[Rfam]
RNA sequence: CCAGAAGGUCCGGGUCGGACCUCCGCCGGUUUUUACCGCUGUGAUAUUCCAAGAAAAAGGUUAUCACCGGGUAAAAACUGGUAGAGGUCCGAUUCUGUCGG
Numbered sequence: 001c002c003a004g005a006a007g008g009u010c011c012g013g014g015u016c017g018g019a020c021c022u023c024c025g026c027c028g029g030u031u032u033u034u035a036c037c038g039c040u041g042u043g044a045u046a047u048u049c050c051a052a053g054a055a056a057a058a059g060g061u062u063a064u065c066a067c068c069g070g071g072u073a074a075a076a077a078c079u080g081g082u083a084g085a086g087g088u089c090c091g092a093u094u095c096u097g098u099c100g101g
Base pairs, nucleotide, nucleotide: 016091017090018089019088020087021086022085025082026081027080028079029078030077031076032075033074034073035072036071037070039069041067042066043065044064045063046062
A member of the RNA family "mir-36 microRNA precursor family" from Caenorhabditis nigoni, 101 nucleotides long. Rfam 15.1 lists 199 matches to the family in 31 species. The source organism's lineage runs through Eukaryota, Bilateria, Nematoda, Chromadorea and Caenorhabditis. The literature on the family includes a 2004 paper in RNA by Ohler et al., "Patterns of flanking sequence conservation and a characteristic upstream motif for microRNA gene identification". Gene Ontology terms of the family: RISC complex and miRNA-mediated post-transcriptional gene silencing. The match comes from Rfam's covariance-model search (77 bits). Its Rfam clan is "mir-36 clan".